[Rfam]
RNA: Small nucleolar RNA psi18S-1377
Organism: Drosophila kikkawai
RNA sequence: CCGUUCUUGUGUUAUUUGCUGGUUGAUUUUAACCAAAACCAGUGAUUGUCAAACAGAACGCAUAUAAAUCAGGCAACUAAUCACUCCAUAAUGUUGAGCCGACUAUCCAGGGCUUCAGCAUUACUAAAUGUAUGCCACAACU
Numbered sequence: 001c002c003g004u005u006c007u008u009g010u011g012u013u014a015u016u017u018g019c020u021g022g023u024u025g026a027u028u029u030u031a032a033c034c035a036a037a038a039c040c041a042g043u044g045a046u047u048g049u050c051a052a053a054c055a056g057a058a059c060g061c062a063u064a065u066a067a068a069u070c071a072g073g074c075a076a077c078u079a080a081u082c083a084c085u086c087c088a089u090a091a092u093g094u095u096g097a098g099c100c101g102a103c104u105a106u107c108c109a110g111g112g113c114u115u116c117a118g119c120a121u122u123a124c125u126a127a128a129u130g131u132a133u134g135c136c137a138c139a140a141c142u
Stems, first nucleotide, its partner, number of pairs: 002060006010051002016045007090122005097114004